[Rfam]
RNA sequence: CCUAUCAGCUAUUGGCUUUAAAUUAGCAGAACUAAAACUGCUUAAGUGAUAGGACAUUCCAUAGAAAGAAUUGCCCUAAGAAAUUCUAAGAAAAAUUAAUUUUAGAUUUGAAAACCAGUUCUCUGUGCUAGUAAAGGUAAAAUUAAUUUAACUUUGCAAAAUGUAAAAAGUUAAAAAAUUUAGAUGAAGACUAUCAAAGCUUAGGG
Numbered sequence: 001c002c003u004a005u006c007a008g009c010u011a012u013u014g015g016c017u018u019u020a021a022a023u024u025a026g027c028a029g030a031a032c033u034a035a036a037a038c039u040g041c042u043u044a045a046g047u048g049a050u051a052g053g054a055c056a057u058u059c060c061a062u063a064g065a066a067a068g069a070a071u072u073g074c075c076c077u078a079a080g081a082a083a084u085u086c087u088a089a090g091a092a093a094a095a096u097u098a099a100u101u102u103u104a105g106a107u108u109u110g111a112a113a114a115c116c117a118g119u120u121c122u123c124u125g126u127g128c129u130a131g132u133a134a135a136g137g138u139a140a141a142a143u144u145a146a147u148u149u150a151a152c153u154u155u156g157c158a159a160a161a162u163g164u165a166a167a168a169a170g171u172u173a174a175a176a177a178a179u180u181u182a183g184a185u186g187a188a189g190a191c192u193a194u195c196a197a198a199g200c201u202u203a204g205g206g
Base pairs, nucleotide, nucleotide: 001053002052003051004050005049006048007047025042026041027040028039029038032183033182034181035180036179054164055163056162057161058160067087068086069085070084071083072082074206075205076204077203078202079201080200088154089153090152093149094148095147096146097145098144099143100142101141102140103139104138
FuFi-1 RNA: a 206-nucleotide RNA. The sequence is in the family's curated seed alignment. It is annotated as a small RNA.